Description: The record is a 61-nucleotide RNA from Juglans regia, which matches "Plastid-psbN 5UTR RNA" in Rfam. The match comes from Rfam's covariance-model search (77 bits).
RNA sequence: UGUGAUACCCAUCAAAGGAGUAGUUUCCCAAACGGGAGCUACUUUACCAUAUUCCGAAUUU
Numbered sequence: 001u002g003u004g005a006u007a008c009c010c011a012u013c014a015a016a017g018g019a020g021u022a023g024u025u026u027c028c029c030a031a032a033c034g035g036g037a038g039c040u041a042c043u044u045u046a047c048c049a050u051a052u053u054c055c056g057a058a059u060u061u
Base pairs, nucleotide, nucleotide: 017045018044019043020042021041022040023039024038025037026036027035

For this family Rfam cites "Retrograde signaling in plants: A critical review focusing on the GUN pathway and beyond" (Richter et al., Plant Commun, 2023). Plastid psbN is a non-coding RNA (ncRNA) recognised in plastids. It was reported as a conserved 11 stem-loop in the prime untranslated region (5UTR) of psbN genes. It has been reported that the motif is retained in a subset of mature transcripts in barley, which can suggests a possible role in transcript alternative 5 prime processing. The family's RNA type in Rfam is cis-regulatory element. The family's consensus secondary structure was predicted with LocARNA.